The family of this 81-nucleotide RNA from Enterobacteriaceae bacterium strain FGI 57 is "antisense RNA of dnaA mRNA".
[Rfam]
RNA sequence: UUUGGCAUUCGGUUUACGUGCGAUGAUGCCGUUACCGACCGCAUGUAAUAAGUGCGUUUUACCGAGGCCCGUUCCGCCGUA
Dot-bracket structure: ....((..(((((..(((.((......))))).)))))..)).........(((.(....((........)).))))....
Numbered sequence: 001u002u003u004g005g006c007a008u009u010c011g012g013u014u015u016a017c018g019u020g021c022g023a024u025g026a027u028g029c030c031g032u033u034a035c036c037g038a039c040c041g042c043a044u045g046u047a048a049u050a051a052g053u054g055c056g057u058u059u060u061a062c063c064g065a066g067g068c069c070c071g072u073u074c075c076g077c078c079g080u081a
Stems, first nucleotide, its partner, number of pairs: 005042002009038005016032003020029002052077003056074001061072002